[Rfam]
RNA sequence: GACACAAAUUCAAAGUAGAGUAGUUUAGUAUGGUCAGAUGGUCCUUCUAAUCUACUCAACUUCAAAUUUGGGCCC
Numbered sequence: 001g002a003c004a005c006a007a008a009u010u011c012a013a014a015g016u017a018g019a020g021u022a023g024u025u026u027a028g029u030a031u032g033g034u035c036a037g038a039u040g041g042u043c044c045u046u047c048u049a050a051u052c053u054a055c056u057c058a059a060c061u062u063c064a065a066a067u068u069u070g071g072g073c074c075c
Stems, first nucleotide, its partner, number of pairs: 001074001003072001005070005013062004018057006025050004030045001032043004
Shown here is a 75-nucleotide RNA sequence from Haemonchus placei, a member of the family "mir-5928 microRNA precursor family". The family's consensus secondary structure was predicted with RNAalifold. Its family is annotated with miRNA-mediated post-transcriptional gene silencing and RISC complex in the Gene Ontology.